[Rfam]
RNA sequence: UAAUUUGUUUAUAGUAGAUUCUCAUCUAAGUAUGACAGACUUAUUUAUGAUUAUCUAUAAUUACCUGUUGUCACAAAUUUGACUACAUUAUCAAUACUCAUAAAACAUAUUUAAAAAAAAAAUUCAAAAAAUUAUGAU
Number, nucleotide and partner (000 for none) at each position: 001u000002a000003a000004u136005u000006u134007g133008u131009u130010u000011a000012u127013a000014g125015u000016a000017g000018a000019u120020u000021c000022u000023c000024a000025u116026c000027u113028a112029a111030g110031u109032a000033u000034g000035a000036c000037a000038g000039a000040c000041u000042u000043a000044u000045u000046u000047a000048u000049g000050a000051u000052u000053a000054u000055c000056u000057a000058u000059a000060a000061u000062u000063a000064c000065c000066u000067g000068u000069u000070g000071u000072c000073a000074c000075a000076a000077a000078u000079u000080u000081g000082a000083c000084u000085a000086c000087a000088u000089u000090a000091u000092c000093a000094a000095u000096a000097c000098u000099c000100a000101u000102a000103a000104a000105a000106c000107a000108u000109a031110u030111u029112u028113a027114a000115a000116a025117a000118a000119a000120a019121a000122a000123u000124u000125c014126a000127a012128a000129a000130a009131a008132u000133u007134a006135u000136g004137a000138u000
RNA: MIR480 microRNA precursor family